The family of this 85-nucleotide RNA from Bacillus sp. FJAT-18017 is "c-di-GMP-I-GGC riboswitch aptamer".
The base pairs follow the family's consensus structure, which is taken from published work.
Clan: c-di-GMP_I riboswitch clan.

[Rfam]
RNA sequence: UCUGACAAAGGCAAACCUGUCUAAAGGCAGGGACGCAAAGCGAUGGGCCUACCCGGGAAACCGAACGGCUGCCACGCCGCCGGAC
Numbered sequence: 001u002c003u004g005a006c007a008a009a010g011g012c013a014a015a016c017c018u019g020u021c022u023a024a025a026g027g028c029a030g031g032g033a034c035g036c037a038a039a040g041c042g043a044u045g046g047g048c049c050u051a052c053c054c055g056g057g058a059a060a061c062c063g064a065a066c067g068g069c070u071g072c073c074a075c076g077c078c079g080c081c082g083g084a085c
Stems, first nucleotide, its partner, number of pairs: 003082002011036002016031006034071001040077003044074003047069003